Shown here is a 133-nucleotide sequence from Coregonus sp. 'balchen', a member of the family "Small nucleolar RNA SNORA49". Taxonomically the source falls in Coregonus (Eukaryota, Craniata, Vertebrata, Gnathostomata). The snoRNA ACA49 has no identified RNA target. NB genomic sequence 1-nt different from published. The family has 21 seed sequences and 722 matches in Rfam 15.1.

RNA sequence: CUUCCCCUCCCUUACUCCAGUCACUCUAUCCCCAGUGGAGUGUUCUGGCAUUGACAGGGGAUACAGCACCAUGGCUCUCUCACCUCUCUCAUCUAAGACUAUCUUAAAUUAGGCUUGUGAGAGAGCUGACAAU
Numbered sequence: 001c002u003u004c005c006c007c008u009c010c011c012u013u014a015c016u017c018c019a020g021u022c023a024c025u026c027u028a029u030c031c032c033c034a035g036u037g038g039a040g041u042g043u044u045c046u047g048g049c050a051u052u053g054a055c056a057g058g059g060g061a062u063a064c065a066g067c068a069c070c071a072u073g074g075c076u077c078u079c080u081c082a083c084c085u086c087u088c089u090c091a092u093c094u095a096a097g098a099c100u101a102u103c104u105u106a107a108a109u110u111a112g113g114c115u116u117g118u119g120a121g122a123g124a125g126c127u128g129a130c131a132a133u
Stems, first nucleotide, its partner, number of pairs: 003061006011053001017048004023041005073127003077123002086112002091109001094107001096105001